[Rfam]
RNA sequence: UUGAGGCGAUGAAGCGAAAGGUUGCCUGCAAGGGAAAUUUUCGUGGAGAAAUGUCUAGAUCUAUGAAUCGGGCGACAA
Numbered sequence: 001u002u003g004a005g006g007c008g009a010u011g012a013a014g015c016g017a018a019a020g021g022u023u024g025c026c027u028g029c030a031a032g033g034g035a036a037a038u039u040u041u042c043g044u045g046g047a048g049a050a051a052u053g054u055c056u057a058g059a060u061c062u063a064u065g066a067a068u069c070g071g072g073c074g075a076c077a078a
Stems, first nucleotide, its partner, number of pairs: 014044003018041004025033003052077004058073001060071002